[Rfam]
The record is a 98-nucleotide RNA sequence, which matches "skipping-rope RNA" in Rfam. The family's RNA type in Rfam is small RNA.
Nucleotides: 098
Base pairs, nucleotide, nucleotide: 001098002097003096004095005094006093007092008091011033012032013031014030015029023084024083025082026081027080035065037055038054070090071089072088073087074086
Number, partner (000 for none) and nucleotide at each position: 001098g002097u003096u004095a005094u006093u007092u008091g009000a010000g011033g012032u013031g014030g015029a016000c017000a018000a019000u020000u021000u022000c023084g024083u025082g026081g027080c028000a029015u030014c031013c032012a033011c034000a035065c036000g037055c038054c039000g040000a041000c042000g043000g044000u045000a046000u047000g048000a049000c050000a051000g052000a053000a054038g055037g056000a057000a058000a059000c060000u061000u062000c063000g064000a065035g066000a067000g068000a069000u070090g071089c072088a073087g074086g075000a076000g077000u078000a079000a080027g081026c082025c083024a084023c085000g086074c087073c088072u089071g090070c091008c092007a093006a094005a095004u096003a097002a098001c